[Rfam]
This 125-nucleotide sequence from Nippostrongylus brasiliensis belongs to the Rfam family "Nematode snoRNA ceN39". On this family, see Jia et al., BMC Mol Biol 2007: "Systematic identification of non-coding RNA 2,2,7-trimethylguanosine cap structures in Caenorhabditis elegans". Lineage of the source: Eukaryota > Bilateria > Ecdysozoa > Rhabditida > Nippostrongylus. Pairs were carried over by alignment from the consensus structure, which was predicted with RNAalifold. The match comes from Rfam's covariance-model search (44 bits).

RNA sequence: GUCGCGGAUAGGAACCAUAAAGUGCCUUUGCAUUCCGUGGGCCGAUAAACCGCGUAAAUUGAUCGAUGAUAAUGGUCGCAUUCUUAACAUUGGUUAUUGGUGCAUUACCAAUUCAUCGUACACUU
Numbered sequence: 001g002u003c004g005c006g007g008a009u010a011g012g013a014a015c016c017a018u019a020a021a022g023u024g025c026c027u028u029u030g031c032a033u034u035c036c037g038u039g040g041g042c043c044g045a046u047a048a049a050c051c052g053c054g055u056a057a058a059u060u061g062a063u064c065g066a067u068g069a070u071a072a073u074g075g076u077c078g079c080a081u082u083c084u085u086a087a088c089a090u091u092g093g094u095u096a097u098u099g100g101u102g103c104a105u106u107a108c109c110a111a112u113u114c115a116u117c118g119u120a121c122a123c124u125u
Stems, first nucleotide, its partner, number of pairs: 003054005011043002015040004021034005065117005074109003078103002081100002085096004